Rfam assigns this 136-nucleotide RNA from Pseudomonas sp. TTU2014-080ASC to the family "rmf RNA".
[Rfam]
RNA sequence: UUGGUUAGAAAUCAUUCUUAGCUUAACUCCGCAACGGAGCGAGCCACGGAGAUUCGUCACGCCGGCAACGAACUCCACAGGCAGAGACGUCUGCCGAUACAGCCACAAGCUUUAAAGGACAUACAUAACAGUCAAC
Numbered sequence: 001u002u003g004g005u006u007a008g009a010a011a012u013c014a015u016u017c018u019u020a021g022c023u024u025a026a027c028u029c030c031g032c033a034a035c036g037g038a039g040c041g042a043g044c045c046a047c048g049g050a051g052a053u054u055c056g057u058c059a060c061g062c063c064g065g066c067a068a069c070g071a072a073c074u075c076c077a078c079a080g081g082c083a084g085a086g087a088c089g090u091c092u093g094c095c096g097a098u099a100c101a102g103c104c105a106c107a108a109g110c111u112u113u114a115a116a117g118g119a120c121a122u123a124c125a126u127a128a129c130a131g132u133c134a135a136c
Stems, first nucleotide, its partner, number of pairs: 023043002027039004051074001053072005080095006098114002101111003
Record summary:
The organism belongs to Pseudomonas, within Bacteria. The match comes from Rfam's covariance-model search (72 bits). The family's RNA type in Rfam is cis-regulatory element. The base pairs follow the family's consensus structure, which is taken from published work.